Shown here is a 98-nucleotide sequence from Hyphomonas sp. CY54-11-8, a member of the family "Bacterial small signal recognition particle RNA".
The signal recognition particle (SRP) is a universally conserved ribonucleoprotein involved in the co-translational targeting of proteins to membranes.
The family's RNA type in Rfam is non-coding RNA gene.
The organism belongs to Hyphomonas, within Bacteria.
RNA sequence: GGAGGCAGGUGGCGGACGGGCCGCUCGCCAACCGGGUCAGGCCGGGAACGGAGCAGCCCCAACGAGUUUUCCGCCCGGGUCGCUCGCCUGUCUCCUUC
Numbered sequence: 001g002g003a004g005g006c007a008g009g010u011g012g013c014g015g016a017c018g019g020g021c022c023g024c025u026c027g028c029c030a031a032c033c034g035g036g037u038c039a040g041g042c043c044g045g046g047a048a049c050g051g052a053g054c055a056g057c058c059c060c061a062a063c064g065a066g067u068u069u070u071c072c073g074c075c076c077g078g079g080u081c082g083c084u085c086g087c088c089u090g091u092c093u094c095c096u097u098c
Stems, first nucleotide, its partner, number of pairs: 004092005009085001011084004017077005023067005034059004042051003